[Rfam]
Notes: This 170-nucleotide RNA sequence from Streptomyces luteoverticillatus belongs to the Rfam family "c-di-AMP riboswitch aptamer (ydaO/yuaA leader)".
RNA sequence: CGUGCGCCUUCGCCGAAUCCCGUGGGUGGAACCGGGGAACCAUCAUUUGGGGUGAAUCGGGCCCGUACGCCGGCCCGUAGGAGACCUUCCUCCUCCGAACCCUCCCCCAGAGCCUGAACGGCCUGGGAGGGACCCCCACGCAAACCCGGUAGGCGACCAGGAAGGAAAGG
Number, nucleotide and partner (000 for none) at each position: 001c000002g000003u000004g000005c000006g000007c000008c000009u000010u000011c155012g154013c153014c152015g000016a000017a000018u030019c029020c028021c000022g000023u000024g000025g000026g000027u000028g020029g019030a018031a150032c149033c148034g147035g146036g145037g000038a000039a000040c000041c049042a048043u000044c000045a000046u000047u000048u042049g041050g135051g134052g133053u000054g000055a000056a000057u000058c077059g076060g075061g074062c073063c072064c000065g000066u000067a000068c000069g000070c000071c000072g063073g062074c061075c060076c059077g058078u000079a000080g000081g000082a000083g000084a000085c000086c000087u000088u000089c000090c000091u000092c000093c000094u000095c000096c000097g000098a000099a000100c000101c000102c000103u000104c000105c000106c000107c000108c000109a000110g000111a000112g000113c000114c000115u000116g000117a000118a000119c000120g000121g000122c000123c000124u000125g000126g000127g000128a000129g000130g000131g000132a000133c052134c051135c050136c000137c000138a000139c000140g000141c000142a000143a000144a000145c036146c035147c034148g033149g032150u031151a000152g014153g013154c012155g011156a000157c000158c000159a000160g000161g000162a000163a000164g000165g000166a000167a000168a000169g000170g000

Lineage of the source: Bacteria > Bacillati > Kitasatosporales > Streptomycetaceae > Streptomyces.
A search with the family's covariance model found it, with a score of 48 bits.